This 130-nucleotide RNA from Phyllostomus discolor belongs to the Rfam family "Small nucleolar RNA SNORA38".
The base pairs follow the family's consensus structure, which was predicted with RNAfold.
Rfam 15.1 lists 628 matches to the family in 149 species.
Lineage of the source: Eukaryota > Euteleostomi > Tetrapoda > Amniota > Phyllostomus.
Rfam links the family to the GO terms nucleolus, RNA processing and Cajal body.
RNA sequence: UCCUCCUUCGAAGGUGUGUCUGUGGUUCCCUGUCUUUGGACACGUAAGGAUUGGAGGCACAGGAGUGUGGACUGGGGAGGUCUGGGGCCAGCUUGCUCCCUGCAGGCUCAAGAUCAGCCAUCCCACACAG
Numbered sequence: 001u002c003c004u005c006c007u008u009c010g011a012a013g014g015u016g017u018g019u020c021u022g023u024g025g026u027u028c029c030c031u032g033u034c035u036u037u038g039g040a041c042a043c044g045u046a047a048g049g050a051u052u053g054g055a056g057g058c059a060c061a062g063g064a065g066u067g068u069g070g071a072c073u074g075g076g077g078a079g080g081u082c083u084g085g086g087g088c089c090a091g092c093u094u095g096c097u098c099c100c101u102g103c104a105g106g107c108u109c110a111a112g113a114u115c116a117g118c119c120a121u122c123c124c125a126c127a128c129a130g
Base pairs, nucleotide, nucleotide: 002057003056004055005054006053015044016043017042018041019040020039021038024030025029069123070122071121073120090108091107092106093105094104095103096102

ACA38 is a member of the H/ACA class of snoRNA that guide the sites of modification of uridines to pseudouridines.
It is annotated as an H/ACA-box small nucleolar RNA.